[Rfam]
RNA sequence: AAAGCAAGUUGCAAUUACAAUGCUUCAUUUUGUGGAAGUACCACCAUCAUCCUGCUGAAAGAAAAGUCAUGUUGAUGGCUUUUUAUGUUUGUCUUUAUGAGGGUAAAAUCAUGACAUUUUGACAUGGACAAUU
Numbered sequence: 001a002a003a004g005c006a007a008g009u010u011g012c013a014a015u016u017a018c019a020a021u022g023c024u025u026c027a028u029u030u031u032g033u034g035g036a037a038g039u040a041c042c043a044c045c046a047u048c049a050u051c052c053u054g055c056u057g058a059a060a061g062a063a064a065a066g067u068c069a070u071g072u073u074g075a076u077g078g079c080u081u082u083u084u085a086u087g088u089u090u091g092u093c094u095u096u097a098u099g100a101g102g103g104u105a106a107a108a109u110c111a112u113g114a115c116a117u118u119u120u121g122a123c124a125u126g127g128a129c130a131a132u133u
Base pairs, nucleotide, nucleotide: 003056004055005054006053008051021040022039023038024037025036026035067127068126069125070124071123072122073121074120075119077117083111085109086108088107089106090105091104092103093102094101095100